[Rfam]
RNA sequence: AAUGAUAGUUUCAUCGCUUUUCAUUAUAGGACUUAUGGGACUUUUUUUCUACAACAAAAGAGGCUCCAUCAUUCCUACAGCGGUUUUACCCACUACAGAAAUUAUAGAGCC
Numbered sequence: 001a002a003u004g005a006u007a008g009u010u011u012c013a014u015c016g017c018u019u020u021u022c023a024u025u026a027u028a029g030g031a032c033u034u035a036u037g038g039g040a041c042u043u044u045u046u047u048u049c050u051a052c053a054a055c056a057a058a059a060g061a062g063g064c065u066c067c068a069u070c071a072u073u074c075c076u077a078c079a080g081c082g083g084u085u086u087u088a089c090c091c092a093c094u095a096c097a098g099a100a101a102u103u104a105u106a107g108a109g110c111c
Stems, first nucleotide, its partner, number of pairs: 001025005008017002028043003032039001062111005068105002071102003075098001079094002082091002
Shown here is a 111-nucleotide RNA sequence from Streptococcus sanguinis, a member of the family "Streptococcus RNA 266".
The match comes from Rfam's covariance-model search (96 bits).
It is annotated as a small RNA.
The pairing is the family consensus, mapped onto this sequence.